[Rfam]
RNA sequence: GUGGUACUCAAACUAUGGGGGCACUUUUUUGUUCUGGAAUAAAGUGCCACCAAGUUUUGAGCGCUAC
Numbered sequence: 001g002u003g004g005u006a007c008u009c010a011a012a013c014u015a016u017g018g019g020g021g022c023a024c025u026u027u028u029u030u031g032u033u034c035u036g037g038a039a040u041a042a043a044g045u046g047c048c049a050c051c052a053a054g055u056u057u058u059g060a061g062c063g064c065u066a067c
Stems, first nucleotide, its partner, number of pairs: 004064002007061006016052003020048008
RNA: mir-290 microRNA precursor family